[Rfam]
RNA sequence: AUUAUCCAAGGAUAGAACAGGCAGCUAUCACGCCCUAGUGGUCUUAAAGAGAUACCGGAGUGUCACCCGGUUGGAGGGU
Numbered sequence: 001a002u003u004a005u006c007c008a009a010g011g012a013u014a015g016a017a018c019a020g021g022c023a024g025c026u027a028u029c030a031c032g033c034c035c036u037a038g039u040g041g042u043c044u045u046a047a048a049g050a051g052a053u054a055c056c057g058g059a060g061u062g063u064c065a066c067c068c069g070g071u072u073g074g075a076g077g078g079u
Stems, first nucleotide, its partner, number of pairs: 001079003005075004011029005020064004031049001032042003054071005

Annotation
A member of the RNA family "skipping-rope RNA", 79 nucleotides long. It is annotated as a small RNA. It is one of the family's seed sequences.